[Rfam]
RNA sequence: UGGAAUUCAGGGCAAAGCUAUCGUGAGGUAGUGACGCAAAGCUACAGGGUCUGAGACUUCUCAGACAGCCAGCUGCCUGC
Numbered sequence: 001u002g003g004a005a006u007u008c009a010g011g012g013c014a015a016a017g018c019u020a021u022c023g024u025g026a027g028g029u030a031g032u033g034a035c036g037c038a039a040a041g042c043u044a045c046a047g048g049g050u051c052u053g054a055g056a057c058u059u060c061u062c063a064g065a066c067a068g069c070c071a072g073c074u075g076c077c078u079g080c
Base pairs, nucleotide, nucleotide: 012037013036017032018031019030020029021028022027040074041073042072043071047070048069049066050065051064052063053062054061055060